[Rfam]
RNA sequence: AGAGGUCGACCGCCGAGUCGGUGCACCCGCAGUCUGCCGGGGCGUCGAGCCGGGGACCCAGGUUCGUUGGGGUGAAUCCCAUCACCGUGGAACGGGUGCGCUGACGCGUGCCCGGAACCGGGUGUGGGUAGGGCUUUUCUCGGCCCGAAUCCGUCAGCUAACCCGGUAGGCGGCAAGAGAAAGGCA
Number, nucleotide and partner (000 for none) at each position: 001a000002g000003a000004g000005g000006u000007c000008g000009a000010c000011c172012g171013c170014c169015g000016a000017g000018u048019c047020g046021g045022u044023g043024c042025a000026c000027c000028c000029g000030c000031a000032g000033u000034c000035u000036g000037c000038c000039g000040g000041g000042g024043c023044g022045u021046c020047g019048a018049g167050c166051c165052g164053g163054g162055g000056a000057c000058c000059c069060a068061g000062g000063u000064u000065c000066g000067u000068u060069g059070g152071g151072g150073u000074g000075a000076a000077u000078c128079c127080c126081a125082u000083c000084a000085c000086c000087g000088u000089g000090g000091a000092a000093c000094g000095g000096g000097u000098g000099c000100g000101c000102u000103g000104a000105c000106g000107c000108g000109u000110g000111c000112c000113c000114g000115g000116a000117a000118c000119c000120g000121g000122g000123u000124g000125u081126g080127g079128g078129u000130a000131g146132g145133g144134c143135u000136u000137u000138u000139c000140u000141c000142g000143g134144c133145c132146c131147g000148a000149a000150u072151c071152c070153g000154u000155c000156a000157g000158c000159u000160a000161a000162c054163c053164c052165g051166g050167u049168a000169g014170g013171c012172g011173g000174c000175a000176a000177g000178a000179g000180a000181a000182a000183g000184g000185c000186a000
The record is a 186-nucleotide sequence from Nakamurella leprariae, which matches "c-di-AMP riboswitch aptamer (ydaO/yuaA leader)" in Rfam. The organism belongs to Nakamurella, within Bacteria. It scores 78 bits against the family's covariance model.